[Rfam]
RNA sequence: GGCAGGCGGGAUGCCCGAAGCUCGAGAACGCCGGAUAAACUGGCAAACGGAUCCGCGGUGAGCGCAGCUCUUGCCCGGGUCCAUCAAUGAUCAGCCAGCAGCCGCUGCAACCCCAGGGAG
Number, nucleotide and partner (000 for none) at each position: 001g000002g000003c000004a000005g000006g000007c000008g000009g000010g000011a000012u000013g000014c000015c000016c000017g000018a000019a000020g000021c000022u000023c000024g000025a000026g000027a000028a000029c000030g000031c000032c000033g000034g000035a000036u000037a000038a000039a000040c000041u000042g000043g000044c000045a000046a000047a000048c000049g082050g081051a080052u079053c078054c077055g000056c000057g075058g000059u073060g072061a071062g070063c000064g000065c000066a000067g000068c000069u000070c062071u061072u060073g059074c000075c057076c000077g054078g053079g052080u051081c050082c049083a000084u000085c000086a000087a000088u000089g000090a000091u000092c000093a000094g000095c000096c107097a106098g105099c104100a000101g000102c000103c000104g099105c098106u097107g096108c000109a000110a000111c000112c000113c000114c000115a000116g000117g000118g000119a000120g000
The family of this 120-nucleotide RNA from Streptomyces cinnamoneus is "Streptomyces-metK RNA". Lineage of the source: Bacteria > Bacillati > Actinomycetota > Streptomycetaceae > Streptomyces. Rfam classes the family as a small RNA.